[Rfam]
Background: A member of the RNA family "TPP riboswitch aptamer (THI element)" from Hymenobacter crusticola, 96 nucleotides long. The base pairs follow the family's consensus structure, which is taken from published work. Gene Ontology term of the family: thiamine pyrophosphate binding. Taxonomically the source falls in Hymenobacter (Bacteria, Pseudomonadati, Cytophagia, Cytophagales). A search with the family's covariance model found it, with a score of 74 bits.
RNA sequence: CAUAAACUUUAGGGGUGUUCCGCCGCGCGGGACUGAGAAAUACCCUUGGAACCUGAUCCAGGUAAUGCUGGCGAAGGGAAAAGUGAGAAGCGAGAG
Number, nucleotide and partner (000 for none) at each position: 001c000002a000003u000004a000005a000006a084007c083008u082009u081010u080011a046012g045013g044014g043015g000016u040017g033018u032019u031020c030021c029022g000023c000024c000025g000026c000027g000028c000029g021030g020031g019032a018033c017034u000035g000036a000037g000038a000039a000040a016041u000042a000043c014044c013045c012046u011047u000048g000049g000050a000051a000052c077053c076054u075055g000056a000057u000058c071059c070060a069061g068062g000063u000064a000065a000066u000067g000068c061069u060070g059071g058072c000073g000074a000075a054076g053077g052078g000079a000080a010081a009082a008083g007084u006085g000086a000087g000088a000089a000090g000091c000092g000093a000094g000095a000096g000